The record is a 144-nucleotide RNA from Camelus bactrianus, which matches "U4 spliceosomal RNA" in Rfam. The base pairs follow the family's consensus structure, which is taken from published work. The source organism's lineage runs through Eukaryota, Eumetazoa, Chordata, Tylopoda and Camelus. The match comes from Rfam's covariance-model search (67 bits).
[Rfam]
RNA sequence: AGCUUUGCCCAGUGGCAGUAUCAUAGCCAAUGAGGUUUAUCCGAGGUGCGAUUAUUGCUAAUUGAAAACUUAAAGAAUUCCUGGUCAUGUCACUUCCUCCUUUAUGGUGCUGAGUUUAAAAUCAUCCAAAGCUUAAGUAAUUAA
Numbered sequence: 001a002g003c004u005u006u007g008c009c010c011a012g013u014g015g016c017a018g019u020a021u022c023a024u025a026g027c028c029a030a031u032g033a034g035g036u037u038u039a040u041c042c043g044a045g046g047u048g049c050g051a052u053u054a055u056u057g058c059u060a061a062u063u064g065a066a067a068a069c070u071u072a073a074a075g076a077a078u079u080c081c082u083g084g085u086c087a088u089g090u091c092a093c094u095u096c097c098u099c100c101u102u103u104a105u106g107g108u109g110c111u112g113a114g115u116u117u118a119a120a121a122u123c124a125u126c127c128a129a130a131g132c133u134u135a136a137g138u139a140a141u142u143a144a
Stems, first nucleotide, its partner, number of pairs: 020052003024048001026047003034042002082119001084117001086114001088112002091109004133144003